[Rfam]
The record is a 245-nucleotide part of an RNA from Kozakia baliensis, which matches "Bacterial large subunit ribosomal RNA" in Rfam. It scores 2728 bits against the family's covariance model.

RNA sequence: UGAGACUUGAGAGGAUUUGUCCCUAGUACGAGAGGACCGGGAUGAACAUACCUCUGGUGCACCGGUUGUCGCGCCAGCGGCACAGCCGGGUAGCUAAGUAUGGACGGGAUAACCGCUGAAAGCAUCUAAGCGGGAAACCCACCUCAAAACGAGGUCUCACAGGGCCGUGAAAGACCAUCACGUCAAUAGGCCGGGUGUGUAAGCGCAGCAAUGCGCUCAGCUAACCGGUCCUAAUCGCCCAUAUC
Number, nucleotide and partner (000 for none) at each position: 001u159002g158003a157004g156005a155006c154007u153008u152009g000010a000011g145012a144013g143014g142015a000016u000017u045018u044019g043020u042021c041022c040023c039024u000025a000026g000027u000028a000029c000030g000031a000032g000033a000034g000035g000036a000037c000038c000039g023040g022041g021042a020043u019044g018045a017046a000047c102048a101049u100050a099051c098052c000053u000054c000055u096056g095057g094058u000059g000060c000061a000062c089063c088064g087065g086066u085067u082068g081069u080070c079071g078072c077073g000074c000075c000076a000077g072078c071079g070080g069081c068082a067083c000084a000085g066086c065087c064088g063089g062090g000091u000092a000093g000094c057095u056096a055097a000098g051099u050100a049101u048102g047103g000104a000105c000106g140107g139108g138109a000110u000111a000112a000113c133114c132115g131116c130117u129118g000119a000120a000121a000122g000123c000124a000125u000126c000127u000128a000129a117130g116131c115132g114133g113134g000135a000136a000137a000138c108139c107140c106141a000142c014143c013144u012145c011146a000147a000148a000149a000150c000151g000152a008153g007154g006155u005156c004157u003158c002159a001160c000161a000162g240163g239164g238165c237166c182167g181168u180169g179170a178171a000172a000173g000174a000175c000176c000177a000178u170179c169180a168181c167182g166183u000184c000185a000186a000187u233188a232189g231190g229191c228192c227193g226194g225195g000196u000197g221198u000199g000200u000201a000202a000203g216204c215205g214206c213207a212208g000209c000210a000211a000212u207213g206214c205215g204216c203217u000218c000219a000220g000221c197222u000223a000224a000225c194226c193227g192228g191229u190230c000231c189232u188233a187234a000235u000236c000237g165238c164239c163240c162241a000242u000243a000244u000245c000

The source organism's lineage runs through Bacteria, Pseudomonadota, Alphaproteobacteria, Acetobacterales and Kozakia.